RNA: 6S / SsrS RNA
Organism: Alkalibacillus haloalkaliphilus
RNA sequence: CCAAUUCUGCGUUGUUCGUAGUAUCAUUUUGUCUUAAACCUAUAAGAUCUAAAAGGGAAACUUAAAUUUUAAGCUGGACAACACGCCUGUUAAUCAGGACUUUGGAAAGUUUAAUGCGGUUACCCACCUGCCAAUGCGGGUUAAAAAGGCAAUCGAAUUACGACAUCAUGCGGAAUGGUU
Numbered sequence: 001c002c003a004a005u006u007c008u009g010c011g012u013u014g015u016u017c018g019u020a021g022u023a024u025c026a027u028u029u030u031g032u033c034u035u036a037a038a039c040c041u042a043u044a045a046g047a048u049c050u051a052a053a054a055g056g057g058a059a060a061c062u063u064a065a066a067u068u069u070u071a072a073g074c075u076g077g078a079c080a081a082c083a084c085g086c087c088u089g090u091u092a093a094u095c096a097g098g099a100c101u102u103u104g105g106a107a108a109g110u111u112u113a114a115u116g117c118g119g120u121u122a123c124c125c126a127c128c129u130g131c132c133a134a135u136g137c138g139g140g141u142u143a144a145a146a147a148g149g150c151a152a153u154c155g156a157a158u159u160a161c162g163a164c165a166u167c168a169u170g171c172g173g174a175a176u177g178g179u180u
Stems, first nucleotide, its partner, number of pairs: 002178001004176008013165003017162003031150003034146001035144001037142004055125003059121004066115001069114007081102001086098004